[Rfam]
This 126-nucleotide sequence from Otolemur garnettii belongs to the Rfam family "Small nucleolar RNA SNORA28". Rfam classes the family as an H/ACA-box small nucleolar RNA. Clan: SNORA28 clan. Rfam's curators write: ACA28 is a member of the H/ACA class of snoRNA that guide the sites of modification of uridines to pseudouridines. The sequence is in the family's curated seed alignment.
RNA sequence: AAGCAACGCUCUGUGGUAGAUGAUCAAAACUGUCUGACACAAUUUGAGCUUGCUAUAGCAAGAAAGUCUAACCUAUUCCGGUGUUCUCCCUUCUGUGAGACGAGCCGUUACAUAGACUUAAACAGU
Numbered sequence: 001a002a003g004c005a006a007c008g009c010u011c012u013g014u015g016g017u018a019g020a021u022g023a024u025c026a027a028a029a030c031u032g033u034c035u036g037a038c039a040c041a042a043u044u045u046g047a048g049c050u051u052g053c054u055a056u057a058g059c060a061a062g063a064a065a066g067u068c069u070a071a072c073c074u075a076u077u078c079c080g081g082u083g084u085u086c087u088c089c090c091u092u093c094u095g096u097g098a099g100a101c102g103a104g105c106c107g108u109u110a111c112a113u114a115g116a117c118u119u120a121a122a123c124a125g126u
Stems, first nucleotide, its partner, number of pairs: 009048003012041004017036006064119007074112001076110001079107004087100002090097001